The record is a 334-nucleotide sequence from Klebsiella sp. RIT-PI-d, which matches "RNase E 5' UTR element" in Rfam. The match comes from Rfam's covariance-model search (240 bits). From the family's description: This family represents a conserved element found in the 5' UTR of RNase E mRNA. RNase E is a key regulatory enzyme in the pathway of mRNA degradation in E. coli that is able to auto-regulate the degradation of its own mRNA in response to changes in RNase E activity. This rne 5' UTR element acts as a sensor of cellular RNase E concentration enabling tight regulation of RNase E concentration and synthesis. The literature on the family includes a 2000 paper in Genes Dev by Diwa et al., "An evolutionarily conserved RNA stem-loop functions as a sensor that directs feedback regulation of RNase E gene expression".

[Rfam]
RNA sequence: UUUUCCGUGUUGAAUCUUGUUAAGACAAGGAAUUUUGCGGAAUUACCAGUUUUGUCUGUCCGAUCAUCAACGCAGCAAUGGCGUAAGACGUAUUGAACUUUCAGACAGUUAGCGGGCUACGGGUUGUAGUCCUUACCGGUAAAUGGAAUCGACCCUGGAGAGUUUUCCCAGGCUGUUUCCCAGUUAAUUGCGCUGUAUUUCCGUAUGAAACGCAGGCAACCGACACUCUGCGCCUCUUAAGCGAGCGACAACCGUGAGGUUGGCGACGUGAACAGACACGAGGCCAUCGGUCAUCCCCGGAAAGGCAAUACUCUGCCCGUAGCUUAGUCGUCAA
Numbered sequence: 001u002u003u004u005c006c007g008u009g010u011u012g013a014a015u016c017u018u019g020u021u022a023a024g025a026c027a028a029g030g031a032a033u034u035u036u037g038c039g040g041a042a043u044u045a046c047c048a049g050u051u052u053u054g055u056c057u058g059u060c061c062g063a064u065c066a067u068c069a070a071c072g073c074a075g076c077a078a079u080g081g082c083g084u085a086a087g088a089c090g091u092a093u094u095g096a097a098c099u100u101u102c103a104g105a106c107a108g109u110u111a112g113c114g115g116g117c118u119a120c121g122g123g124u125u126g127u128a129g130u131c132c133u134u135a136c137c138g139g140u141a142a143a144u145g146g147a148a149u150c151g152a153c154c155c156u157g158g159a160g161a162g163u164u165u166u167c168c169c170a171g172g173c174u175g176u177u178u179c180c181c182a183g184u185u186a187a188u189u190g191c192g193c194u195g196u197a198u199u200u201c202c203g204u205a206u207g208a209a210a211c212g213c214a215g216g217c218a219a220c221c222g223a224c225a226c227u228c229u230g231c232g233c234c235u236c237u238u239a240a241g242c243g244a245g246c247g248a249c250a251a252c253c254g255u256g257a258g259g260u261u262g263g264c265g266a267c268g269u270g271a272a273c274a275g276a277c278a279c280g281a282g283g284c285c286a287u288c289g290g291u292c293a294u295c296c297c298c299g300g301a302a303a304g305g306c307a308a309u310a311c312u313c314u315g316c317c318c319g320u321a322g323c324u325u326a327g328u329c330g331u332c333a334a
Base pairs, nucleotide, nucleotide: 003042004041005040006039007038008037015030016029017028018027019026052108053107054106055105056104057103058102064096065095066094070091071090072089075082076081114325115324116323117322118321119320120319121318122317123316124315133303134302136300137299138298139297145180146179147178148177154172155171156170157169158168189218190217191216193215194214195213196212198210199209200208201207219291220290221289222288223287232284233283234282235281236280246265247264249262250261251260252259253258